[Rfam]
RNA sequence: CUUCAACAACAGUGCGAAAUCAAACGCUUGAUUUGUUCUUUAAUUUUCUUUUGGAAAAUUAAAAAAGAAAUUAAGCAGCGGCCAGACAACCGUAGAGAUGGUAUCCACAGAUGAAGGGCUUUUUAAUCCCUUUUGUCUACUGAUUCCAUUUCACAUUC
Numbered sequence: 001c002u003u004c005a006a007c008a009a010c011a012g013u014g015c016g017a018a019a020u021c022a023a024a025c026g027c028u029u030g031a032u033u034u035g036u037u038c039u040u041u042a043a044u045u046u047u048c049u050u051u052u053g054g055a056a057a058a059u060u061a062a063a064a065a066a067g068a069a070a071u072u073a074a075g076c077a078g079c080g081g082c083c084a085g086a087c088a089a090c091c092g093u094a095g096a097g098a099u100g101g102u103a104u105c106c107a108c109a110g111a112u113g114a115a116g117g118g119c120u121u122u123u124u125a126a127u128c129c130c131u132u133u134u135g136u137c138u139a140c141u142g143a144u145u146c147c148a149u150u151u152c153a154c155a156u157u158c
Stems, first nucleotide, its partner, number of pairs: 002055005009046001013042001014037001017034006095152007103145001114134002116131003
Shown here is a 158-nucleotide RNA from Hibiscus trionum, a member of the family "small nucleolar RNA snoR143". Lineage of the source: Eukaryota > Viridiplantae > Tracheophyta > Spermatophyta > Hibiscus. The match comes from Rfam's covariance-model search (68 bits). The family's RNA type in Rfam is H/ACA-box small nucleolar RNA.